[Rfam]
Rfam assigns this 133-nucleotide RNA sequence from Neomonachus schauinslandi to the family "Small nucleolar RNA SNORA72". By type it is an H/ACA-box small nucleolar RNA. Rfam links the family to the GO terms nucleolus and RNA processing. For this family Rfam cites "The family of box ACA small nucleolar RNAs is defined by an evolutionarily conserved secondary structure and ubiquitous sequence elements essential for RNA accumulation" (Ganot et al., Genes Dev, 1997). From the family's description: U72 is a member of the H/ACA class of snoRNAs. The snoRNA gene is located in intron 4 of the ribosomal L30 protein gene in human, mouse and chicken. Rfam 15.1 lists 1,541 matches to the family in 547 species.

RNA sequence: CGGUGACAACAGCAGCUGGGAACUUGUUAGAAAUGCAGUUUCCAGGCUACACAUUCGUGAUGUUAAGACCAUGCCUGUGUUGCCAGGCCUUGGUCCUUCCCCAGGUCUGGUUUUAUAAACACUGGUGAUCAAC
Numbered sequence: 001c002g003g004u005g006a007c008a009a010c011a012g013c014a015g016c017u018g019g020g021a022a023c024u025u026g027u028u029a030g031a032a033a034u035g036c037a038g039u040u041u042c043c044a045g046g047c048u049a050c051a052c053a054u055u056c057g058u059g060a061u062g063u064u065a066a067g068a069c070c071a072u073g074c075c076u077g078u079g080u081u082g083c084c085a086g087g088c089c090u091u092g093g094u095c096c097u098u099c100c101c102c103a104g105g106u107c108u109g110g111u112u113u114u115a116u117a118a119a120c121a122c123u124g125g126u127g128a129u130c131a132a133c
Base pairs, nucleotide, nucleotide: 003058004057005056016045017044018043019042020041021040022039023038024037026036027035068126069125070124071123073122083110084109085108086107087106088105089104090103092101